A member of the RNA family "Small nucleolar RNA SNORD26" from Sula dactylatra, 75 nucleotides long.
The base pairs follow the family's consensus structure, which was predicted with PFOLD.
Its family is annotated with nucleolus and RNA processing in the Gene Ontology.
The source organism's lineage runs through Eukaryota, Gnathostomata, Archosauria, Theropoda and Sula.
By type it is a C/D-box small nucleolar RNA.
[Rfam]
RNA sequence: CCGCGGGGAUGACCCCACGGAACUCUCUCUUGCUGAUGGCGUCGUGGAGAAGCUUUUAACCGAGCUCUGAGCGGC
Number, nucleotide and partner (000 for none) at each position: 001c074002c073003g072004c071005g000006g000007g000008g000009a000010u000011g000012a000013c000014c000015c000016c000017a000018c000019g000020g000021a000022a000023c000024u000025c000026u000027c000028u000029c000030u000031u000032g000033c000034u000035g000036a000037u000038g000039g000040c000041g000042u000043c000044g000045u000046g000047g000048a000049g000050a000051a000052g000053c000054u000055u000056u000057u000058a000059a000060c000061c000062g000063a000064g000065c000066u000067c000068u000069g000070a000071g004072c003073g002074g001075c000

Rfam 15.1 lists 451 matches to the family in 401 species.